The family of this 104-nucleotide RNA from Pyrus ussuriensis x Pyrus communis is "MIR398 microRNA precursor family". Taxonomically the source falls in Pyrus (Eukaryota, Gunneridae, fabids, Rosaceae). Pairs were carried over by alignment from the consensus structure, which was predicted with WAR.

[Rfam]
RNA sequence: AGAGGUUCCACAUGAGUGACCUGAGAUCACAUGUAACACAAGAUCACAUGUAACGCUUGUGUAUUGCGCUUGAUGUGUUCUCAGGUUGCCCCUGCGGUACCUUC
Numbered sequence: 001a002g003a004g005g006u007u008c009c010a011c012a013u014g015a016g017u018g019a020c021c022u023g024a025g026a027u028c029a030c031a032u033g034u035a036a037c038a039c040a041a042g043a044u045c046a047c048a049u050g051u052a053a054c055g056c057u058u059g060u061g062u063a064u065u066g067c068g069c070u071u072g073a074u075g076u077g078u079u080c081u082c083a084g085g086u087u088g089c090c091c092c093u094g095c096g097g098u099a100c101c102u103u104c
Base pairs, nucleotide, nucleotide: 008097011094012093014091016089017088018087019086023082024081025080026079028077029076030075031074032073